[Rfam]
Nucleotides: 096
Base pairs, nucleotide, nucleotide: 004093005092006091008089011086012085013084014083016080017079018078019077020076021075023073024072025071026070027069028068029067030066032064033063
Number, partner (000 for none) and nucleotide at each position: 001000c002000c003000a004093u005092u006091u007000c008089a009000a010000g011086u012085g013084a014083g015000g016080g017079u018078u019077a020076g021075a022000g023073g024072g025071a026070a027069c028068u029067g030066a031000a032064c033063c034000g035000u036000c037000c038000a039000u040000u041000g042000c043000a044000u045000u046000g047000c048000a049000a050000g051000a052000a053000a054000g055000g056000a057000a058000g059000c060000a061000a062000g063033g064032g065000u066030u067029c068028a069027g070026u071025u072024u073023c074000c075021u076020c077019u078018a079017a080016u081000u082000u083014c084013u085012c086011a087000u088000c089008u090000c091006a092005a093004a094000u095000g096000g